[Rfam]
RNA sequence: UAGACAUCAUUAACAGUGUUCAAUAUGUUUA
Numbered sequence: 001u002a003g004a005c006a007u008c009a010u011u012a013a014c015a016g017u018g019u020u021c022a023a024u025a026u027g028u029u030u031a
Base pairs, nucleotide, nucleotide: 001031002030003029004028005027006026007025009024010023011022013020014018
The family of this 31-nucleotide RNA from Strongylocentrotus purpuratus is "Iron response element II". The family's RNA type in Rfam is cis-regulatory element. IRE, TFRC, SLC40A1, SDHB, SLC11A2, CDC42BPA, ACO2, ALAS2_H.SAPIENS, CDC14A, EPAS1, ALAS2, qoxD, Hao1, NDUFS1, transferrin, Aconitate. The family's consensus secondary structure is taken from published work. NCBI's taxonomy places the organism under Eukaryota, Deuterostomia, Eleutherozoa, Camarodonta, Strongylocentrotus.